[Rfam]
RNA sequence: UGGGCUCCGGUUCACGCCCGCCGCGGGCGAGGCGACCCGGCGCC
Numbered sequence: 001u002g003g004g005c006u007c008c009g010g011u012u013c014a015c016g017c018c019c020g021c022c023g024c025g026g027g028c029g030a031g032g033c034g035a036c037c038c039g040g041c042g043c044c
Stems, first nucleotide, its partner, number of pairs: 003044003007040004015034004019029004